[Rfam]
RNA sequence: AACCCCCCGCGUGGCGGCAUCUCGCCCAACUCCCCCAGGGCCGAGAGGCAGCAAGGGUAAGUGAGCUCUGUCGGGUGCGCGGGGGGCCUUC
Number, nucleotide and partner (000 for none) at each position: 001a000002a000003c086004c085005c000006c083007c082008c081009g080010c079011g078012u075013g000014g000015c073016g072017g071018c070019a069020u000021c065022u064023c063024g062025c061026c000027c000028a000029a000030c000031u000032c057033c056034c055035c000036c000037a000038g000039g000040g049041c048042c047043g000044a000045g000046a000047g042048g041049c040050a000051g000052c000053a000054a000055g034056g033057g032058u000059a000060a000061g025062u024063g023064a022065g021066c000067u000068c000069u019070g018071u017072c016073g015074g000075g012076u000077g000078c011079g010080c009081g008082g007083g006084g000085g004086g003087c000088c000089u000090u000091c000
RNA: Bacterial small signal recognition particle RNA
Organism: Nocardioides marinus